[Rfam]
Rfam assigns this 94-nucleotide RNA from Branchiostoma lanceolatum to the family "mir-2060 microRNA precursor family". Taxonomically the source falls in Branchiostoma (Eukaryota, Bilateria, Cephalochordata, Branchiostomatidae). It scores 97 bits against the family's covariance model. Its family is annotated with RISC complex and miRNA-mediated post-transcriptional gene silencing in the Gene Ontology.
RNA sequence: GUUCACCCGUGUGUGGAUAGUGUUCAGCACCAAGAACAGGCAUGUUUGCCUGUGUGUGGAUGGUGUUCAGCACCAGGGACAGGCAUGUUAAACU
Numbered sequence: 001g002u003u004c005a006c007c008c009g010u011g012u013g014u015g016g017a018u019a020g021u022g023u024u025c026a027g028c029a030c031c032a033a034g035a036a037c038a039g040g041c042a043u044g045u046u047u048g049c050c051u052g053u054g055u056g057u058g059g060a061u062g063g064u065g066u067u068c069a070g071c072a073c074c075a076g077g078g079a080c081a082g083g084c085a086u087g088u089u090a091a092a093c094u
Stems, first nucleotide, its partner, number of pairs: 006083002009080002018075001020073005026067007034055001036053007